[Rfam]
RNA sequence: CGCCGCUUCGCGGGAGAGAGGCCGUCAGAGGUCCGCCGAAGGCGCAAGCUCCCAUAAUCGCUCAGGCAAAUGAACCGCGAAAUCAAA
Dot-bracket structure: ......(((((((......((((......)))).(((((..(((...(......)...))))).))).......)))))))......
Numbered sequence: 001c002g003c004c005g006c007u008u009c010g011c012g013g014g015a016g017a018g019a020g021g022c023c024g025u026c027a028g029a030g031g032u033c034c035g036c037c038g039a040a041g042g043c044g045c046a047a048g049c050u051c052c053c054a055u056a057a058u059c060g061c062u063c064a065g066g067c068a069a070a071u072g073a074a075c076c077g078c079g080a081a082a083u084c085a086a087a
Stems, first nucleotide, its partner, number of pairs: 007081007020033004035067003038063002042061003048055001
A member of the RNA family "Glycine riboswitch aptamer" from Jeongeupia sacculi, 87 nucleotides long. The match comes from Rfam's covariance-model search (62 bits). Rfam describes the family as follows. This family represents the bacterial glycine riboswitch.